[Rfam]
RNA sequence: GGCGCGGUGGGUGGUGGGGUUCACCUGGAACCGCCUCGUACUGAGGCCGAUGACUCCUGAGAGAUC
Numbered sequence: 001g002g003c004g005c006g007g008u009g010g011g012u013g014g015u016g017g018g019g020u021u022c023a024c025c026u027g028g029a030a031c032c033g034c035c036u037c038g039u040a041c042u043g044a045g046g047c048c049g050a051u052g053a054c055u056c057c058u059g060a061g062a063g064a065u066c
Stems, first nucleotide, its partner, number of pairs: 010025004016057006033047004

Source information
Rfam assigns this 66-nucleotide RNA sequence from Eoetvoesiella caeni to the family "Fluoride riboswitch aptamer (crcB RNA motif)". The match comes from Rfam's covariance-model search (42 bits).